[Rfam]
RNA sequence: UUCGCUCGAAAACACGUCGACCGUGGAUUGUGCGUCCGGCACGGGCGCCUCAUCCACCCCGUGUCGUACCCCGACCCGCCCGGCUGUCCCCCCGGGGCGGGUC
Number, nucleotide and partner (000 for none) at each position: 001u020002u019003c000004g017005c016006u000007c000008g000009a000010a000011a000012a000013c000014a000015c000016g005017u004018c000019g002020a001021c000022c000023g000024u000025g071026g070027a000028u000029u000030g069031u068032g067033c066034g000035u000036c000037c000038g065039g064040c063041a062042c061043g000044g000045g000046c000047g000048c000049c000050u000051c000052a000053u000054c000055c000056a000057c000058c000059c000060c000061g042062u041063g040064u039065c038066g033067u032068a031069c030070c026071c025072c000073g103074a102075c101076c100077c099078g098079c097080c096081c094082g093083g092084c000085u000086g000087u000088c000089c000090c000091c000092c083093c082094g081095g000096g080097g079098c078099g077100g076101g075102u074103c073
Rfam assigns this 103-nucleotide RNA sequence from Bradyrhizobium sp. Leo170 to the family "Rhizobiales-2 RNA". It scores 58 bits against the family's covariance model. The organism belongs to Bradyrhizobium, within Bacteria.